[Rfam]
RNA: Plant signal recognition particle RNA
Organism: Phaseolus vulgaris
RNA sequence: GCUGAGCUGGGUUACUCCAGCUUGUGACCCAAGUGGGAGCUUCAAUGUGAUGGGAGAGCACUGAGACUUGCUGGGUUGGGCUGUGUUUGCAAUAUGUUGGCCUGUCCAUUCCAAGUUGAAGGACUUUUGGUGAAGGCUAAGGUCUCUUGGCUCUUAGAGUGAAGGGCACAGCGUGAGGCUGGUUUCACAUAGCAACGACCACCUUCCACUCCCGACAGUGGAGGGAUCACAGGCUUCAGCAACCUCAGUCCUUAAUGGCCUGGUCAGGCUAGUCUGCUUGUACUAUCGCAUUU
Dot-bracket structure: (((((((((((....))))))))....(((....))))))...((((((((((.(.((((.(.((..(.((((((((((((((.(.(((.........(((((((((.(((((.((((.((((.(((((((....))))))))).))......(....).(((((......(((.....((......)).....)))....)))))......))))..)))))))...)))))))....))).).)))))).....)))))))).)..)).)..))).).).)))))))))).